[Rfam]
RNA: MIR2617 microRNA precursor family
RNA sequence: AUGACGUGUAGCAUGCCCGUUGUGGGAUUACUCUGAUGAUUACAUACUAUUUUAUUGCUUUUGGGUAACGGGGUGUUACAUAACA
Numbered sequence: 001a002u003g004a005c006g007u008g009u010a011g012c013a014u015g016c017c018c019g020u021u022g023u024g025g026g027a028u029u030a031c032u033c034u035g036a037u038g039a040u041u042a043c044a045u046a047c048u049a050u051u052u053u054a055u056u057g058c059u060u061u062u063g064g065g066u067a068a069c070g071g072g073g074u075g076u077u078a079c080a081u082a083a084c085a
Stems, first nucleotide, its partner, number of pairs: 002085002006081009016072006